This 82-nucleotide RNA from Sediminihaliea albiluteola belongs to the Rfam family "tRNA".
Rfam describes the family as follows. Transfer RNA (tRNA) molecules are approximately 80 nucleotides in length. Their secondary structure includes four short double-helical elements and three loops (D, anti-codon, and T loops). Further hydrogen bonds mediate the characteristic L-shaped molecular structure. tRNAs have two regions of fundamental functional importance: the anti-codon, which is responsible for specific mRNA codon recognition, and the 3' end, to which the tRNAs corresponding amino acid is attached (by aminoacyl-tRNA synthetases). tRNAs cope with the degeneracy of the genetic code in two manners: having more than one tRNA (with a specific anti-codon) for a particular amino acid; and 'wobble' base-pairing, i.e. permitting non-standard base-pairing at the 3rd anti-codon position.
The source organism's lineage runs through Bacteria, Pseudomonadati, Gammaproteobacteria, Cellvibrionales and Sediminihaliea.
Pairs were carried over by alignment from the consensus structure, which is taken from published work.
[Rfam]
RNA sequence: GCGGAAGUGGCGAAAUUGGUAUACGCGCUGGAUUUAGGUUCCAGUGCCGCAAGGCGUGAGAGUUCGAGUCUCUCCUUCCGCA
Numbered sequence: 001g002c003g004g005a006a007g008u009g010g011c012g013a014a015a016u017u018g019g020u021a022u023a024c025g026c027g028c029u030g031g032a033u034u035u036a037g038g039u040u041c042c043a044g045u046g047c048c049g050c051a052a053g054g055c056g057u058g059a060g061a062g063u064u065c066g067a068g069u070c071u072c073u074c075c076u077u078c079c080g081c082a
Stems, first nucleotide, its partner, number of pairs: 001081007010026003028044005058074005